[Rfam]
Shown here is a 99-nucleotide RNA sequence from Caldinitratiruptor microaerophilus, a member of the family "c-di-GMP-I riboswitch aptamer". Rfam describes the family as follows. GEMM was predicted in a large-scale screen for bacterial structured RNA regulatory elements. Its family is annotated with cyclic-di-GMP binding in the Gene Ontology. The match comes from Rfam's covariance-model search (66 bits).
RNA sequence: CCCGCUUCAGGGCAAACCCAGCGAAAGCUGGGGGCGCAAAGCCAGGAGCCUACAGCCGGGGGCGUUCUCGCCCCCGGCCAGGGUCGUCCGGUUGCCGGG
Numbered sequence: 001c002c003c004g005c006u007u008c009a010g011g012g013c014a015a016a017c018c019c020a021g022c023g024a025a026a027g028c029u030g031g032g033g034g035c036g037c038a039a040a041g042c043c044a045g046g047a048g049c050c051u052a053c054a055g056c057c058g059g060g061g062g063c064g065u066u067c068u069c070g071c072c073c074c075c076g077g078c079c080a081g082g083g084u085c086g087u088c089c090g091g092u093u094g095c096c097g098g099g
Stems, first nucleotide, its partner, number of pairs: 012037002017032006040093004045089003048084003055078010